[Rfam]
RNA sequence: CGGAGGAAGCACCAAGUGUCGAAGACACACUUUAAAUGGUGCUGACGAACUGCCGCCGAGAGAUUGUGCCCAUGCGUUGAAAACGCAUAUUGGCGUUACCUGUAAUGCGAGGCGGCAAUACCAGAC
Numbered sequence: 001c002g003g004a005g006g007a008a009g010c011a012c013c014a015a016g017u018g019u020c021g022a023a024g025a026c027a028c029a030c031u032u033u034a035a036a037u038g039g040u041g042c043u044g045a046c047g048a049a050c051u052g053c054c055g056c057c058g059a060g061a062g063a064u065u066g067u068g069c070c071c072a073u074g075c076g077u078u079g080a081a082a083a084c085g086c087a088u089a090u091u092g093g094c095g096u097u098a099c100c101u102g103u104a105a106u107g108c109g110a111g112g113c114g115g116c117a118a119u120a121c122c123a124g125a126c
Base pairs, nucleotide, nucleotide: 008043009042010041011040012039013038016028017027018026019025052116053115054114056112057111060108
RNA: GA-cis RNA
Organism: Coprococcus sp. CAG:782